The family of this 135-nucleotide RNA from Oryctolagus cuniculus is "Small nucleolar RNA SNORA70". snoRNA U70 seems to be exclusive to mammals and is a member of the H/ACA class of snoRNA which contain H (ANANNA) and ACA box motifs. H/ACA box snoRNAs are involved in the conversion of uridines to pseudouridines (5-ribosyluracil) a constituent of structural RNAs (transfer, ribosomal, small nuclear, and small nucleolar). It is annotated as an H/ACA-box small nucleolar RNA. The match comes from Rfam's covariance-model search (82 bits). The family has 43 seed sequences and 5,173 matches in Rfam 15.1. The base pairs follow the family's consensus structure, which was predicted with PFOLD.
RNA sequence: UCACGUCCAACUGAGCUAAUGACUCCCCUUUCUUUAGGGGGGCCUGAUGUGCUGUGGCCACAAACAGCAGCCACCUAGGGAGUGUACACAACCUACUGCUUGUAUGGGCUGCCCGGUGGGACCUUGGAGGCAGCC
Numbered sequence: 001u002c003a004c005g006u007c008c009a010a011c012u013g014a015g016c017u018a019a020u021g022a023c024u025c026c027c028c029u030u031u032c033u034u035u036a037g038g039g040g041g042g043c044c045u046g047a048u049g050u051g052c053u054g055u056g057g058c059c060a061c062a063a064a065c066a067g068c069a070g071c072c073a074c075c076u077a078g079g080g081a082g083u084g085u086a087c088a089c090a091a092c093c094u095a096c097u098g099c100u101u102g103u104a105u106g107g108g109c110u111g112c113c114c115g116g117u118g119g120g121a122c123c124u125u126g127g128a129g130g131c132a133g134c135c
Base pairs, nucleotide, nucleotide: 004051005050019048020047022045025042026041027040028039078123079122089111090110092108093107094106
Dot-bracket structure: ...((.............((.(..((((..........))))..).)).))..........................((.........((.(((...........))).))..........))............